[Rfam]
RNA sequence: UCGGCUCUUCCAAUCAUUGUGAAGCAGAAUUCACCAAGUGUUAGAUUGUUCACCCACCAAUAGGGAACGUGAGCUGGGUUUAGGCCAUCGUGAGAUAAGUUAGUU
Numbered sequence: 001u002c003g004g005c006u007c008u009u010c011c012a013a014u015c016a017u018u019g020u021g022a023a024g025c026a027g028a029a030u031u032c033a034c035c036a037a038g039u040g041u042u043a044g045a046u047u048g049u050u051c052a053c054c055c056a057c058c059a060a061u062a063g064g065g066a067a068c069g070u071g072a073g074c075u076g077g078g079u080u081u082a083g084g085c086c087a088u089c090g091u092g093a094g095a096u097a098a099g100u101u102a103g104u105u
Stems, first nucleotide, its partner, number of pairs: 002077001003075004007069001008066004015040002019034005042056001044054001046052001083101003087096003
About this RNA
The record is a 105-nucleotide part of an RNA from Cucumis melo, which matches "Eukaryotic large subunit ribosomal RNA" in Rfam. A search with the family's covariance model found it, with a score of 2129 bits.